[Rfam]
RNA sequence: CACUGGCGCUAGCCAAAUUGUUGGAAACAACAACCGGGGGACCCAAUUGUGGGGGUGAAUCCAGCAUUGGACUGGAAGGGCCACUCUCCGCGCCCUAACCCGUCAGCUAACUCCGGAGGCAAUAUUUCUAAGGGGA
Numbered sequence: 001c002a003c004u005g006g007c008g009c010u011a012g013c014c015a016a017a018u019u020g021u022u023g024g025a026a027a028c029a030a031c032a033a034c035c036g037g038g039g040g041a042c043c044c045a046a047u048u049g050u051g052g053g054g055g056u057g058a059a060u061c062c063a064g065c066a067u068u069g070g071a072c073u074g075g076a077a078g079g080g081c082c083a084c085u086c087u088c089c090g091c092g093c094c095c096u097a098a099c100c101c102g103u104c105a106g107c108u109a110a111c112u113c114c115g116g117a118g119g120c121a122a123u124a125u126u127u128c129u130a131a132g133g134g135g136a
Stems, first nucleotide, its partner, number of pairs: 012120003018033006034116006044052001053101003061075004078095004
Shown here is a 136-nucleotide sequence from Sulfobacillus sp. hq2, a member of the family "c-di-AMP riboswitch aptamer (ydaO/yuaA leader)".
The match comes from Rfam's covariance-model search (86 bits).